Rfam assigns this 80-nucleotide RNA from Cyprinus carpio to the family "mir-221 microRNA precursor family". The organism belongs to Cyprinus, within Eukaryota.
[Rfam]
RNA sequence: UCCAUCCUUCGCUCAGUGGUCAGUGUAGGUCCUGUCUCCGCCAGCAGCUACAUCUGGCUACUGGGUCUCUGAUGGCCGUC
Numbered sequence: 001u002c003c004a005u006c007c008u009u010c011g012c013u014c015a016g017u018g019g020u021c022a023g024u025g026u027a028g029g030u031c032c033u034g035u036c037u038c039c040g041c042c043a044g045c046a047g048c049u050a051c052a053u054c055u056g057g058c059u060a061c062u063g064g065g066u067c068u069c070u071g072a073u074g075g076c077c078g079u080c
Base pairs, nucleotide, nucleotide: 013064014063015062016061017060018059020057021056022055023053024052025051026050027049028048032047033046034045035044